[Rfam]
RNA: Mammalian CPEB3 ribozyme
Organism: Alligator sinensis
RNA sequence: AGAGGUCACCAGCUUGAGGCCAUAGUACAAGCACUCCCAGUGCUGCCUGUCAGAUUCUGACAAAUCUGCAAAUUCUGCU
Numbered sequence: 001a002g003a004g005g006u007c008a009c010c011a012g013c014u015u016g017a018g019g020c021c022a023u024a025g026u027a028c029a030a031g032c033a034c035u036c037c038c039a040g041u042g043c044u045g046c047c048u049g050u051c052a053g054a055u056u057c058u059g060a061c062a063a064a065u066c067u068g069c070a071a072a073u074u075c076u077g078c079u
Stems, first nucleotide, its partner, number of pairs: 018047003024079004029074002031043003051068006